[Rfam]
Nucleotides: 072
Stems, first nucleotide, its partner, number of pairs: 001072006012021003023059003026055002030053003036046002
Number, partner (000 for none) and nucleotide at each position: 001072c002071c003070u004069c005068u006067g007000g008000a009000a010000a011000g012021c013020u014019c015000g016000g017000a018000a019014g020013a021012g022000c023059a024058c025057c026055g027054a028000a029000g030053g031052a032051g033000c034000a035000a036046u037045a038000c039000u040000u041000u042000a043000a044000g045037u046036a047000g048000a049000a050000g051032c052031u053030c054027u055026c056000a057025g058024g059023u060000u061000a062000a063000a064000a065000a066000a067006c068005a069004g070003a071002g072001g